[Rfam]
This 74-nucleotide sequence from Neoundibacterium piscinae belongs to the Rfam family "SAH (S-adenosyl-L-homocysteine) riboswitch aptamer". Lineage of the source: Bacteria > Pseudomonadota > Betaproteobacteria > Oxalobacteraceae > Neoundibacterium. The match comes from Rfam's covariance-model search (57 bits).
RNA sequence: UCUUCCAAGGAGCGCUGCGACAAAAUCUUGCUAUUUUGCCAGGCUUGGAAUCAUCACAACUGCGCUCACGUUAC
Number, nucleotide and partner (000 for none) at each position: 001u000002c000003u050004u049005c048006c047007a046008a045009g000010g000011a000012g000013c000014g000015c000016u000017g000018c000019g000020a000021c038022a037023a036024a035025a034026u033027c000028u000029u000030g000031c000032u000033a026034u025035u024036u023037u022038g021039c000040c000041a000042g000043g000044c000045u008046u007047g006048g005049a004050a003051u000052c000053a000054u000055c000056a000057c000058a000059a000060c000061u000062g000063c000064g000065c000066u000067c000068a000069c000070g000071u000072u000073a000074c000